[Rfam]
RNA sequence: GUUACAACUUCUACGGUAACUAUUGAAGGGCGUCUUAAGGAGUAAUUCUUAAGAGAAUGACUGGGUGAAUUGCUGGAACUUCCUAAAGCCUUAUUAGCCACAACGAAACUGGAAACGGUAUACGCGAGGGUUUAAAAAUAAUAAGGAUGGAACAAUGGAUAAUCAGCAGCCAAGCUCCUGGCUCGAAAGAGUGGAGAAGGUUCAACGACUAAGGAAUACCACCUAAAGCAAAAGUCAUGGUGAUGAAUCCUGUAGGAAUGAUAAGAAAUGUGGAAGCUUAUCAGACCGAAGUGCCCAGCCCCUAAUUGAUCUUUAGGGUGAAGAUAUAGUCUAUUCUGUAACCGAAAGGUACAG
Numbered sequence: 001g002u003u004a005c006a007a008c009u010u011c012u013a014c015g016g017u018a019a020c021u022a023u024u025g026a027a028g029g030g031c032g033u034c035u036u037a038a039g040g041a042g043u044a045a046u047u048c049u050u051a052a053g054a055g056a057a058u059g060a061c062u063g064g065g066u067g068a069a070u071u072g073c074u075g076g077a078a079c080u081u082c083c084u085a086a087a088g089c090c091u092u093a094u095u096a097g098c099c100a101c102a103a104c105g106a107a108a109c110u111g112g113a114a115a116c117g118g119u120a121u122a123c124g125c126g127a128g129g130g131u132u133u134a135a136a137a138a139u140a141a142u143a144a145g146g147a148u149g150g151a152a153c154a155a156u157g158g159a160u161a162a163u164c165a166g167c168a169g170c171c172a173a174g175c176u177c178c179u180g181g182c183u184c185g186a187a188a189g190a191g192u193g194g195a196g197a198a199g200g201u202u203c204a205a206c207g208a209c210u211a212a213g214g215a216a217u218a219c220c221a222c223c224u225a226a227a228g229c230a231a232a233a234g235u236c237a238u239g240g241u242g243a244u245g246a247a248u249c250c251u252g253u254a255g256g257a258a259u260g261a262u263a264a265g266a267a268a269u270g271u272g273g274a275a276g277c278u279u280a281u282c283a284g285a286c287c288g289a290a291g292u293g294c295c296c297a298g299c300c301c302c303u304a305a306u307u308g309a310u311c312u313u314u315a316g317g318g319u320g321a322a323g324a325u326a327u328a329g330u331c332u333a334u335u336c337u338g339u340a341a342c343c344g345a346a347a348g349g350u351a352c353a354g
Stems, first nucleotide, its partner, number of pairs: 007033002010030003039048003061298004066293002071168006081159003169201002176194002182189002205332001207331005300318006338352002341350003